[Rfam]
Rfam assigns this 254-nucleotide RNA from Trifolium subterraneum to the family "MIR2655 microRNA precursor family".
RNA sequence: CCCUUAUCUUUAUUUUAGGUUUCAAGUUGGUCCCUUAUCUUUUUUUUAGGUUUCAAGUUGGUCUCUUCCGUCAAUUUUUUUACUGUUACCGUUAAAUCUGGACAUGUGUCACCUGUUCAAGUGUGCCACGUAUCCAAAUCAGUUUGCCACGUGUCCAAAUUUAACGGAAAUAGUUAAAAAAUUGACGGAAGGGACCAACUUGAAACCUAAAAUAAAGAUAAGGGACCAACUUGAAACUUUUAAAAGAUAAGGGA
Number, nucleotide and partner (000 for none) at each position: 001c000002c252003c251004u250005u249006a248007u247008c246009u000010u000011u000012a000013u000014u000015u000016u000017a000018g000019g000020u000021u000022u000023c000024a000025a231026g230027u229028u000029g227030g226031u225032c000033c223034c222035u221036u220037a219038u218039c217040u216041u215042u214043u000044u212045u211046u000047u209048a208049g207050g000051u000052u000053u000054c000055a000056a000057g000058u000059u000060g000061g000062u000063c000064u000065c000066u000067u000068c000069c000070g000071u000072c000073a000074a000075u000076u000077u000078u000079u000080u000081u000082a000083c000084u000085g000086u000087u000088a000089c000090c000091g000092u000093u000094a000095a000096a000097u000098c000099u000100g000101g000102a000103c000104a000105u000106g000107u000108g000109u000110c000111a000112c000113c000114u000115g000116u000117u000118c000119a000120a000121g000122u000123g000124u000125g000126c000127c000128a000129c000130g000131u000132a000133u000134c000135c000136a000137a000138a000139u000140c000141a000142g000143u000144u000145u000146g000147c000148c000149a000150c000151g000152u000153g000154u000155c000156c000157a000158a000159a000160u000161u000162u000163a000164a000165c000166g000167g000168a000169a000170a000171u000172a000173g000174u000175u000176a000177a000178a000179a000180a000181a000182u000183u000184g000185a000186c000187g000188g000189a000190a000191g000192g000193g000194a000195c000196c000197a000198a000199c000200u000201u000202g000203a000204a000205a000206c000207c049208u048209a047210a000211a045212a044213u000214a042215a041216a040217g039218a038219u037220a036221a035222g034223g033224g000225a031226c030227c029228a000229a027230c026231u025232u000233g000234a000235a000236a000237c000238u000239u000240u000241u000242a000243a000244a000245a000246g008247a007248u006249a005250a004251g003252g002253g000254a000
Taxonomically the source falls in Trifolium (Eukaryota, eudicotyledons, rosids, Hologalegina).